[Rfam]
mir-17 microRNA precursor family: a 60-nucleotide RNA sequence from Ictalurus punctatus. For this family Rfam cites "microRNAs: tiny regulators with great potential" (Ambros, Cell, 2001). Rfam's curators put it in the seed alignment. This family represents the microRNA (miRNA) precursor mir-17, family, which includes mir-20, mir-91, and mir-103. miRNAs are transcribed as ~70nt precursors (modelled here) and subsequently processed by the Dicer enzyme to give a ~22nt product. The base pairs follow the family's consensus structure, which was predicted with RNAalifold. Its family is annotated with RISC complex and miRNA-mediated post-transcriptional gene silencing in the Gene Ontology. Lineage of the source: Eukaryota > Metazoa > Teleostomi > Characiphysae > Ictalurus.

RNA sequence: UAAAGUGCUUAUAGUGCAGGUAGUAUUUCUGUCAUCUACUGCAGUGUGAGCACUUGAAGU
Numbered sequence: 001u002a003a004a005g006u007g008c009u010u011a012u013a014g015u016g017c018a019g020g021u022a023g024u025a026u027u028u029c030u031g032u033c034a035u036c037u038a039c040u041g042c043a044g045u046g047u048g049a050g051c052a053c054u055u056g057a058a059g060u
Stems, first nucleotide, its partner, number of pairs: 001058001003055011015043003019040005